[Rfam]
RNA: Group II catalytic intron D1-D4-3
Organism: Liquorilactobacillus ghanensis
RNA sequence: UCCACCGUGAGAUGGAAUCCGAAGGAAGUCCUAGGCAAACUGCUGAACUGAUGUACAAGAAGUGGCUAUAAGGCUGGACGAGCUGGAUAAGAUUGCUAGACGAAUCAAAGUCCGAUACUACUCAGAGCGAACUCCAGUAAAGCCAACAGUUGCAUGGCAGGAAAGCAUUCAUC
Numbered sequence: 001u002c003c004a005c006c007g008u009g010a011g012a013u014g015g016a017a018u019c020c021g022a023a024g025g026a027a028g029u030c031c032u033a034g035g036c037a038a039a040c041u042g043c044u045g046a047a048c049u050g051a052u053g054u055a056c057a058a059g060a061a062g063u064g065g066c067u068a069u070a071a072g073g074c075u076g077g078a079c080g081a082g083c084u085g086g087a088u089a090a091g092a093u094u095g096c097u098a099g100a101c102g103a104a105u106c107a108a109a110g111u112c113c114g115a116u117a118c119u120a121c122u123c124a125g126a127g128c129g130a131a132c133u134c135c136a137g138u139a140a141a142g143c144c145a146a147c148a149g150u151u152g153c154a155u156g157g158c159a160g161g162a163a164a165g166c167a168u169u170c171a172u173c
Stems, first nucleotide, its partner, number of pairs: 001016004006011001028173001035166002040160006046151005063145005073138003077134001080132001083129001085113004091106004